RNA sequence: UAGGGGGAGGGAGGCAGCAUGGCUGGUAGUAUGGUAAUGGCUGCCCAUACUGCUAGACAUGCCACCUUCUUCACCCUUCA
Numbered sequence: 001u002a003g004g005g006g007g008a009g010g011g012a013g014g015c016a017g018c019a020u021g022g023c024u025g026g027u028a029g030u031a032u033g034g035u036a037a038u039g040g041c042u043g044c045c046c047a048u049a050c051u052g053c054u055a056g057a058c059a060u061g062c063c064a065c066c067u068u069c070u071u072c073a074c075c076c077u078u079c080a
Stems, first nucleotide, its partner, number of pairs: 002077004007072004013066002017062004023056009